[Rfam]
Overview: Rfam assigns this 177-nucleotide RNA from Candidatus Propionivibrio aalborgensis to the family "Group II catalytic intron D1-D4-3". Pairs were carried over by alignment from the consensus structure. Taxonomically the source falls in Propionivibrio (Bacteria, Pseudomonadota, Betaproteobacteria, Rhodocyclaceae). From the family's description: Group II introns are found in rRNA, tRNA and mRNA of organelles in fungi, plants and protists, and also in mRNA in bacteria.
RNA sequence: GUCGUCGCGAGGCGGGGUCUGAAGGAAGCCCAAUCCAAAACUGCGGGACGAUGAACAAGAAUCGGAUAUGAGGUGUGGUGCACUCGGGACGAGCGGGCACGUGACUGCGAAGUCCUCCAUCUGCGGUAGUAGGGUGUGCUUUAUAAAUCCGGCGUCUAUGCAGUGAAGGUAACGUGU
Numbered sequence: 001g002u003c004g005u006c007g008c009g010a011g012g013c014g015g016g017g018u019c020u021g022a023a024g025g026a027a028g029c030c031c032a033a034u035c036c037a038a039a040a041c042u043g044c045g046g047g048a049c050g051a052u053g054a055a056c057a058a059g060a061a062u063c064g065g066a067u068a069u070g071a072g073g074u075g076u077g078g079u080g081c082a083c084u085c086g087g088g089a090c091g092a093g094c095g096g097g098c099a100c101g102u103g104a105c106u107g108c109g110a111a112g113u114c115c116u117c118c119a120u121c122u123g124c125g126g127u128a129g130u131a132g133g134g135u136g137u138g139c140u141u142u143a144u145a146a147a148u149c150c151g152g153c154g155u156c157u158a159u160g161c162a163g164u165g166a167a168g169g170u171a172a173c174g175u176g177u
Base pairs, nucleotide, nucleotide: 002015003014004013005012006011028177029176031174036169040164041163042162043161044160045159046157047156048155049154050153062152063151064150065149066148067147073144074143075142077140078139079138080137081136082135083134087115088114089113090112093108094107095106096105